Annotation: The family of this 87-nucleotide sequence from Nelumbo nucifera is "Small nucleolar RNA snoR14". Clan: SNORD110 clan. Rfam classes the family as a C/D-box small nucleolar RNA. The family has 7 seed sequences and 668 matches in Rfam 15.1. Lineage of the source: Eukaryota > Viridiplantae > Streptophyta > Nelumbonaceae > Nelumbo.
RNA sequence: ACGAGGUGACGAUGAAACUCAUGGUCUAUCAAUCCACUGAAAUUAUUAGUGUGAUGUUAAUCAUGAAUCCCAACAGGUUUUGUUUGU
Numbered sequence: 001a002c003g004a005g006g007u008g009a010c011g012a013u014g015a016a017a018c019u020c021a022u023g024g025u026c027u028a029u030c031a032a033u034c035c036a037c038u039g040a041a042a043u044u045a046u047u048a049g050u051g052u053g054a055u056g057u058u059a060a061u062c063a064u065g066a067a068u069c070c071c072a073a074c075a076g077g078u079u080u081u082g083u084u085u086g087u
Stems, first nucleotide, its partner, number of pairs: 001087004